[Rfam]
RNA sequence: CUAGGGUUCCUUCGCAAUGAUAAUUUGUGAACUCGGCCAGGAUCGGGAGAUAGCAACCGUAGCGAAUGAUUCAUGUGCCGAAGUGCAGCUCUAGAGU
Numbered sequence: 001c002u003a004g005g006g007u008u009c010c011u012u013c014g015c016a017a018u019g020a021u022a023a024u025u026u027g028u029g030a031a032c033u034c035g036g037c038c039a040g041g042a043u044c045g046g047g048a049g050a051u052a053g054c055a056a057c058c059g060u061a062g063c064g065a066a067u068g069a070u071u072c073a074u075g076u077g078c079c080g081a082a083g084u085g086c087a088g089c090u091c092u093a094g095a096g097u
Stems, first nucleotide, its partner, number of pairs: 004091005010083005015075001017074004023067006034059003042051003
Shown here is a 97-nucleotide RNA sequence from Parashewanella spongiae, a member of the family "Bacterial small signal recognition particle RNA". From the family's description: The signal recognition particle (SRP) is a universally conserved ribonucleoprotein involved in the co-translational targeting of proteins to membranes. Lineage of the source: Bacteria > Pseudomonadati > Alteromonadales > Shewanellaceae > Parashewanella. It scores 69 bits against the family's covariance model.